[Rfam]
RNA sequence: CCAUAUUUCGGGUUUUGUGCGUGAAUCUAAUAAAACUGUAAUCCACACACAAAGAAUGUGGAUUUGUUUCAUGUUAGAUUCACGCACAAACUCGUAAUCUGUCU
Numbered sequence: 001c002c003a004u005a006u007u008u009c010g011g012g013u014u015u016u017g018u019g020c021g022u023g024a025a026u027c028u029a030a031u032a033a034a035a036c037u038g039u040a041a042u043c044c045a046c047a048c049a050c051a052a053a054g055a056a057u058g059u060g061g062a063u064u065u066g067u068u069u070c071a072u073g074u075u076a077g078a079u080u081c082a083c084g085c086a087c088a089a090a091c092u093c094g095u096a097a098u099c100u101g102u103c104u
Stems, first nucleotide, its partner, number of pairs: 002101002005098003011092003015089013029075003044061001045059001
This 104-nucleotide RNA from Gossypium anomalum belongs to the Rfam family "MIR403 microRNA precursor family". The family has 13 seed sequences and 215 matches in Rfam 15.1. The organism belongs to Gossypium, within Eukaryota.